A member of the RNA family "Eukaryotic small subunit ribosomal RNA" from Plasmodium vivax, 596 nucleotides of a longer RNA.
Taxonomically the source falls in Plasmodium (Eukaryota, Alveolata, Haemosporida, Plasmodium).

RNA sequence: CAGGCGUGGAGCUUGCGGCUUAAUUUGACUCAACACGGGAAAACUCACUAGUUUAAGACAAGAGUAGGAUUGACAGAUUAAUAGCUCUUUCUUGAUUUCUUGGAUGGUGAUGCAUGGCCGUUUUUAGUUCGUGAAUAUGAUUUGUCUGGUUAAUUCCGAUAACGAACGAGAUCUUAACCUGCUAAUUAGCGGCAAAUACGAUAUAUUCUUACGUGGGACUGAAUUCGGUUGAUUUGCUUACUUCGAAGAAAAUAUUGGGAUACGUAACAGUUUCCCUUUCCCUUUUCUACUUAGUUCGCUUUUCAUACUGUUUCUUUUUCGCGUAAGAAUGUAUUUGCUUGAUUGUAAAGCUUCUUAGAGGAACGAUGUGUGUCUAACACAAGGAAGUUUAAGGCAACAACAGGUCUGUGAUGUCCUUAGAUGAACUAGGCUGCACGCGUGCUACACUGAUAUGUAUAACGAGUUAUUAAAAUUACGAUUCAGCUUGCUGUUUCGUAUUUUUCCUCCACUGAAAAGUGUAGGUAAUCUUUAUCAGUACAUAUCGUGAUGGGGAUAGAUUAUUGCAAUUAUUAAUCUUGAACGAGGAAUGCCUAGUA
Numbered sequence: 001c002a003g004g005c006g007u008g009g010a011g012c013u014u015g016c017g018g019c020u021u022a023a024u025u026u027g028a029c030u031c032a033a034c035a036c037g038g039g040a041a042a043a044c045u046c047a048c049u050a051g052u053u054u055a056a057g058a059c060a061a062g063a064g065u066a067g068g069a070u071u072g073a074c075a076g077a078u079u080a081a082u083a084g085c086u087c088u089u090u091c092u093u094g095a096u097u098u099c100u101u102g103g104a105u106g107g108u109g110a111u112g113c114a115u116g117g118c119c120g121u122u123u124u125u126a127g128u129u130c131g132u133g134a135a136u137a138u139g140a141u142u143u144g145u146c147u148g149g150u151u152a153a154u155u156c157c158g159a160u161a162a163c164g165a166a167c168g169a170g171a172u173c174u175u176a177a178c179c180u181g182c183u184a185a186u187u188a189g190c191g192g193c194a195a196a197u198a199c200g201a202u203a204u205a206u207u208c209u210u211a212c213g214u215g216g217g218a219c220u221g222a223a224u225u226c227g228g229u230u231g232a233u234u235u236g237c238u239u240a241c242u243u244c245g246a247a248g249a250a251a252a253u254a255u256u257g258g259g260a261u262a263c264g265u266a267a268c269a270g271u272u273u274c275c276c277u278u279u280c281c282c283u284u285u286u287c288u289a290c291u292u293a294g295u296u297c298g299c300u301u302u303u304c305a306u307a308c309u310g311u312u313u314c315u316u317u318u319u320c321g322c323g324u325a326a327g328a329a330u331g332u333a334u335u336u337g338c339u340u341g342a343u344u345g346u347a348a349a350g351c352u353u354c355u356u357a358g359a360g361g362a363a364c365g366a367u368g369u370g371u372g373u374c375u376a377a378c379a380c381a382a383g384g385a386a387g388u389u390u391a392a393g394g395c396a397a398c399a400a401c402a403g404g405u406c407u408g409u410g411a412u413g414u415c416c417u418u419a420g421a422u423g424a425a426c427u428a429g430g431c432u433g434c435a436c437g438c439g440u441g442c443u444a445c446a447c448u449g450a451u452a453u454g455u456a457u458a459a460c461g462a463g464u465u466a467u468u469a470a471a472a473u474u475a476c477g478a479u480u481c482a483g484c485u486u487g488c489u490g491u492u493u494c495g496u497a498u499u500u501u502u503c504c505u506c507c508a509c510u511g512a513a514a515a516g517u518g519u520a521g522g523u524a525a526u527c528u529u530u531a532u533c534a535g536u537a538c539a540u541a542u543c544g545u546g547a548u549g550g551g552g553a554u555a556g557a558u559u560a561u562u563g564c565a566a567u568u569a570u571u572a573a574u575c576u577u578g579a580a581c582g583a584g585g586a587a588u589g590c591c592u593a594g595u596a
Stems, first nucleotide, its partner, number of pairs: 003591005008445001010443003014439004018434002024039004048429007059102005072091002075088003106417002109415004115411001116409001117405003120401003127167006133143003147158003173393004178361003182358004188352003364384001367381005449543007461529003503522002507518004550581001555576006